[Rfam]
RNA sequence: UUUCUCUUUCAUGCCUUGAGUGUAGGACUGUGAACGUCUUAAUUACCCUCCCACACCCAAGGCUUGCAGGAGAGC
Numbered sequence: 001u002u003u004c005u006c007u008u009u010c011a012u013g014c015c016u017u018g019a020g021u022g023u024a025g026g027a028c029u030g031u032g033a034a035c036g037u038c039u040u041a042a043u044u045a046c047c048c049u050c051c052c053a054c055a056c057c058c059a060a061g062g063c064u065u066g067c068a069g070g071a072g073a074g075c
Stems, first nucleotide, its partner, number of pairs: 002074004007069002010066002013063006020056004025051003030046002
This 75-nucleotide sequence from Peromyscus maniculatus belongs to the Rfam family "mir-532 microRNA precursor family". Taxonomically the source falls in Peromyscus maniculatus (Eukaryota, Bilateria, Teleostomi, Boreoeutheria). It scores 95 bits against the family's covariance model. Its family is annotated with sensory perception of sound, cellular response to leukemia inhibitory factor and RISC complex in the Gene Ontology.